RNA sequence: UCGAAUCUCCAACAAAUGGAUAAGACUUGGUCUUAGUAUAUAGGAGGUUUUGAAAAUAGAAUCAUCUAAGGAGCAAUAAACUCUUUCUUGGUCUAUCAAGAGGGGUGUUUGCUCCUUU
Number, nucleotide and partner (000 for none) at each position: 001u000002c000003g000004a000005a000006u000007c000008u020009c019010c018011a017012a000013c000014a000015a000016a000017u011018g010019g009020a008021u000022a000023a000024g000025a000026c000027u000028u000029g000030g000031u000032c000033u000034u000035a000036g000037u000038a000039u000040a000041u000042a000043g000044g000045a000046g000047g000048u000049u000050u000051u000052g000053a000054a000055a000056a000057u000058a000059g000060a000061a000062u000063c000064a000065u000066c000067u000068a117069a116070g115071g114072a113073g112074c111075a110076a109077u000078a000079a108080a000081c000082u105083c104084u000085u102086u101087c100088u099089u098090g000091g000092u000093c000094u000095a000096u000097c000098a089099a088100g087101a086102g085103g000104g083105g082106u000107g000108u079109u076110u075111g074112c073113u072114c071115c070116u069117u068118u000

Shown here is a 118-nucleotide RNA sequence from Phtheirospermum japonicum, a member of the family "Plastid-psbA-1 3UTR RNA". A search with the family's covariance model found it, with a score of 75 bits. NCBI's taxonomy places the organism under Eukaryota, Streptophyta, Pentapetalae, lamiids, Phtheirospermum. The family's RNA type in Rfam is cis-regulatory element.